Overview: The record is a 300-nucleotide RNA sequence from Betacoronavirus cameli, which matches "Betacoronavirus 5'UTR" in Rfam. The family is grouped with related families in Rfam's "Coronavirus 5' UTR". Rfam describes the family as follows. The first 150 to 200 nucleotides within the 5' UTR of betacoronaviruses are highly structured and shown to be conserved on a structure level among betacoronaviruses. It has been predicted to contain 3 conserved stem-loops (SL1, SL2 and SL4). SARS-CoV and BCoV have an additional stem-loop, called SL3, which contains the TRS-L sequence in its loop region. The literature on the family includes a 2016 paper in Adv Virus Res by Madhugiri et al., "Coronavirus cis-Acting RNA Elements". It is annotated as a cis-regulatory element.
[Rfam]
RNA sequence: AUUUAAGUGAAUAGCUUGGCUAUCUCACUUCCCCUCGUUCUCUUGCAGAACUUUGAUUUUAACGAACUUAAAUAAAAGCCCUGUUGUUUAGCGUAUUGUUGCACUUGUCUGGUGGGAUUGUGGCAUUAAUUUGCCUGCUCAUCUAGGCAGUGGACAUAUGCUCAACACUGGGUAUAAUUCUAAUUGAAUACUAUUUUUCAGUUAGAGCGUCGUGUCUCUUGUACGUCUCGGUCACAAUACACGGUUUCGUCCGGUGCGUGGCAAUUCGGGGCACAUCAUGUCUUUCGUGGCUGGUGUGAC
Numbered sequence: 001a002u003u004u005a006a007g008u009g010a011a012u013a014g015c016u017u018g019g020c021u022a023u024c025u026c027a028c029u030u031c032c033c034c035u036c037g038u039u040c041u042c043u044u045g046c047a048g049a050a051c052u053u054u055g056a057u058u059u060u061a062a063c064g065a066a067c068u069u070a071a072a073u074a075a076a077a078g079c080c081c082u083g084u085u086g087u088u089u090a091g092c093g094u095a096u097u098g099u100u101g102c103a104c105u106u107g108u109c110u111g112g113u114g115g116g117a118u119u120g121u122g123g124c125a126u127u128a129a130u131u132u133g134c135c136u137g138c139u140c141a142u143c144u145a146g147g148c149a150g151u152g153g154a155c156a157u158a159u160g161c162u163c164a165a166c167a168c169u170g171g172g173u174a175u176a177a178u179u180c181u182a183a184u185u186g187a188a189u190a191c192u193a194u195u196u197u198u199c200a201g202u203u204a205g206a207g208c209g210u211c212g213u214g215u216c217u218c219u220u221g222u223a224c225g226u227c228u229c230g231g232u233c234a235c236a237a238u239a240c241a242c243g244g245u246u247u248c249g250u251c252c253g254g255u256g257c258g259u260g261g262c263a264a265u266u267c268g269g270g271g272c273a274c275a276u277c278a279u280g281u282c283u284u285u286c287g288u289g290g291c292u293g294g295u296g297u298g299a300c
Base pairs, nucleotide, nucleotide: 005030006029007028008027009026011023012022013021014020015019037051038050039049040048041047090162091161092160093159094158098155099154100153104150105149107148108147109146110145111144112143211225212224213223237255238254242253243252244251272298273297274296275295276294277293278292280291281290282289